[Rfam]
RNA sequence: UUUGUUUCCGGCAGCGACAUUGUAGAAGCGUGCUCGUCGCGACACCUGCCAGCCCUUUUCAGGGCUGCAAUUCUACA
Numbered sequence: 001u002u003u004g005u006u007u008c009c010g011g012c013a014g015c016g017a018c019a020u021u022g023u024a025g026a027a028g029c030g031u032g033c034u035c036g037u038c039g040c041g042a043c044a045c046c047u048g049c050c051a052g053c054c055c056u057u058u059u060c061a062g063g064g065c066u067g068c069a070a071u072u073c074u075a076c077a
Base pairs, nucleotide, nucleotide: 014045016043018041021077022076023075024074025073026072027071028040029039030038050067051066052065053064054063055062056061
Rfam assigns this 77-nucleotide sequence from Parnassius apollo to the family "Mammalian CPEB3 ribozyme".